[Rfam]
RNA sequence: GAUUAUACCUAAAUCCUCUCAUAAUCGCGGCUA
Numbered sequence: 001g002a003u004u005a006u007a008c009c010u011a012a013a014u015c016c017u018c019u020c021a022u023a024a025u026c027g028c029g030g031c032u033a
Base pairs, nucleotide, nucleotide: 001026002025003024004023005022006021
Background:
Rfam assigns this 33-nucleotide RNA sequence to the family "S4-Bacteroidia ribosomal protein leader". Rfam classes the family as a cis-regulatory leader. On this family, see Eckert and Weinberg, BMC Microbiol 2020: "Discovery of 20 novel ribosomal leader candidates in bacteria and archaea". Pairs were carried over by alignment from the consensus structure, which is taken from published work.